mir-290 microRNA precursor family: a 67-nucleotide RNA from Cavia porcellus. The family has 31 seed sequences and 565 matches in Rfam 15.1. Rfam links the family to the GO terms miRNA-mediated post-transcriptional gene silencing and RISC complex. The match comes from Rfam's covariance-model search (52 bits).
RNA sequence: GCGCCACUCAAACUUCGGGGGCACUUUGUAAUGUGGACCUAAAGUGCCGCUGGGUUCUGAGUGGCGC
Numbered sequence: 001g002c003g004c005c006a007c008u009c010a011a012a013c014u015u016c017g018g019g020g021g022c023a024c025u026u027u028g029u030a031a032u033g034u035g036g037a038c039c040u041a042a043a044g045u046g047c048c049g050c051u052g053g054g055u056u057c058u059g060a061g062u063g064g065c066g067c
Base pairs, nucleotide, nucleotide: 004064005063006062007061008060009059010058012056015053016052017051018050020048021047022046023045024044025043026042027041028040